[Rfam]
RNA: Plastid-ndhJ 3UTR RNA
RNA sequence: UCAUGAGCUUUGUACCGCGUACAUCACUUAGAUGGGCUCUAGAAAGUCACGUAGGAG
Numbered sequence: 001u002c003a004u005g006a007g008c009u010u011u012g013u014a015c016c017g018c019g020u021a022c023a024u025c026a027c028u029u030a031g032a033u034g035g036g037c038u039c040u041a042g043a044a045a046g047u048c049a050c051g052u053a054g055g056a057g
Stems, first nucleotide, its partner, number of pairs: 019037002022034004